The record is a 75-nucleotide sequence from Arctia plantaginis, which matches "mir-970 microRNA precursor family" in Rfam. The match comes from Rfam's covariance-model search (65 bits). The source organism's lineage runs through Eukaryota, Opisthokonta, Panorpida, Erebidae and Arctia. The base pairs follow the family's consensus structure, which was predicted with RNAalifold.

RNA sequence: GAGCGGGAGCCUUGCGUGUGCUCUUAUAGGUAGUGUGGCUGUUUAUCUAUCAUAAGACACACGCGGCUCUUGCCG
Numbered sequence: 001g002a003g004c005g006g007g008a009g010c011c012u013u014g015c016g017u018g019u020g021c022u023c024u025u026a027u028a029g030g031u032a033g034u035g036u037g038g039c040u041g042u043u044u045a046u047c048u049a050u051c052a053u054a055a056g057a058c059a060c061a062c063g064c065g066g067c068u069c070u071u072g073c074c075g
Base pairs, nucleotide, nucleotide: 003073004072005071006070008068009067010066011065014064015063016062019059020058022057023056024055029051030050031049032048